[Rfam]
RNA sequence: AUGACCUCACGCUGAAGGGAGCAUCCGUCGACAGUCAGAAAUGCAGCACUGUCAUGGAGUUGCUCUCUUUACUGAAAAGGUC
Numbered sequence: 001a002u003g004a005c006c007u008c009a010c011g012c013u014g015a016a017g018g019g020a021g022c023a024u025c026c027g028u029c030g031a032c033a034g035u036c037a038g039a040a041a042u043g044c045a046g047c048a049c050u051g052u053c054a055u056g057g058a059g060u061u062g063c064u065c066u067c068u069u070u071a072c073u074g075a076a077a078a079g080g081u082c
Base pairs, nucleotide, nucleotide: 014070015069016068017067018066020064021063022062024058025057026056027055030053031052032051034049035048